[Rfam]
RNA sequence: UCAAUUGCUCCGGGGUGUCCACAUGUUGUGGGCUGAGAUGGCUGACCAAACCCGAGAACUUGAUCCGGUUCAUACCGGCGGAAGAAGAGCAAUUGAUCCUUGU
Numbered sequence: 001u002c003a004a005u006u007g008c009u010c011c012g013g014g015g016u017g018u019c020c021a022c023a024u025g026u027u028g029u030g031g032g033c034u035g036a037g038a039u040g041g042c043u044g045a046c047c048a049a050a051c052c053c054g055a056g057a058a059c060u061u062g063a064u065c066c067g068g069u070u071c072a073u074a075c076c077g078g079c080g081g082a083a084g085a086a087g088a089g090c091a092a093u094u095g096a097u098c099c100u101u102g103u
Stems, first nucleotide, its partner, number of pairs: 006091005011054004016048001017033005040047002059084003065078004
Dot-bracket structure: .....(((((((((.((((((.......)))))......((....)))..))))....(((...((((......))))...)))..)))))............
This 103-nucleotide RNA sequence from Limnohabitans sp. T6-5 belongs to the Rfam family "TPP riboswitch aptamer (THI element)". It scores 66 bits against the family's covariance model.